[Rfam]
RNA: Mason-Pfizer monkey virus packaging signal
Organism: Molossus molossus
RNA sequence: UGGCGUCCAACGUGGGGCUCCAGCACGGGGGAUCCAGUGAAGGACGCCGUUCGAGUGGCCGGCAGAAAGGAAAGGAAAAGAGGGAACGACGUGGGGACCUGCUGCGUCUGCACCCCUCGGGUAAGUGAACGGCGAUUCUGGGUCAAGCAUUGAGCCAACAUAAGAUGUUCGUUGAAGGACUAGGAAAGGCUCUCAAGGCACGAGGAGUAAAGGUAAAAAUUAAGCAUUUGUGUCAGUAUUUUGAUUAUAUUCAGGAAGUUUGCCCUU
Numbered sequence: 001u002g003g004c005g006u007c008c009a010a011c012g013u014g015g016g017g018c019u020c021c022a023g024c025a026c027g028g029g030g031g032a033u034c035c036a037g038u039g040a041a042g043g044a045c046g047c048c049g050u051u052c053g054a055g056u057g058g059c060c061g062g063c064a065g066a067a068a069g070g071a072a073a074g075g076a077a078a079a080g081a082g083g084g085a086a087c088g089a090c091g092u093g094g095g096g097a098c099c100u101g102c103u104g105c106g107u108c109u110g111c112a113c114c115c116c117u118c119g120g121g122u123a124a125g126u127g128a129a130c131g132g133c134g135a136u137u138c139u140g141g142g143u144c145a146a147g148c149a150u151u152g153a154g155c156c157a158a159c160a161u162a163a164g165a166u167g168u169u170c171g172u173u174g175a176a177g178g179a180c181u182a183g184g185a186a187a188g189g190c191u192c193u194c195a196a197g198g199c200a201c202g203a204g205g206a207g208u209a210a211a212g213g214u215a216a217a218a219a220u221u222a223a224g225c226a227u228u229u230g231u232g233u234c235a236g237u238a239u240u241u242u243g244a245u246u247a248u249a250u251u252c253a254g255g256a257a258g259u260u261u262g263c264c265c266u267u
Stems, first nucleotide, its partner, number of pairs: 006031003012026003039047001080118002082115002087110001090106005126145003130142001133140002152193001154190003201243005207237002211229004253266003